The record is an 81-nucleotide RNA from Alligator sinensis, which matches "mir-26 microRNA precursor family" in Rfam. Pairs were carried over by alignment from the consensus structure, which was predicted with RNAalifold. Rfam links the family to the GO terms RISC complex and miRNA-mediated post-transcriptional gene silencing. NCBI's taxonomy places the organism under Eukaryota, Deuterostomia, Euteleostomi, Amniota, Alligator.
[Rfam]
RNA sequence: CUGUUACCUGGUUCAAGUAAUCCAGGAUAGGCUGUAUGCAUUGCAGUUGGCCUAUUCUCGAUUACUUGCACUGGGAGACAG
Numbered sequence: 001c002u003g004u005u006a007c008c009u010g011g012u013u014c015a016a017g018u019a020a021u022c023c024a025g026g027a028u029a030g031g032c033u034g035u036a037u038g039c040a041u042u043g044c045a046g047u048u049g050g051c052c053u054a055u056u057c058u059c060g061a062u063u064a065c066u067u068g069c070a071c072u073g074g075g076a077g078a079c080a081g
Stems, first nucleotide, its partner, number of pairs: 002080004007075006014068009024058010